[Rfam]
RNA sequence: GUGGUUGUAGCUCAGUCGGUUAGAGCACCAGAUUGUGAUUCUGGGGGUCGCGGGUUCGAGCCCCGUCUCCCACC
Numbered sequence: 001g002u003g004g005u006u007g008u009a010g011c012u013c014a015g016u017c018g019g020u021u022a023g024a025g026c027a028c029c030a031g032a033u034u035g036u037g038a039u040u041c042u043g044g045g046g047g048u049c050g051c052g053g054g055u056u057c058g059a060g061c062c063c064c065g066u067c068u069c070c071c072a073c074c
Stems, first nucleotide, its partner, number of pairs: 001073004007067001010026004028044005050066005
RNA: tRNA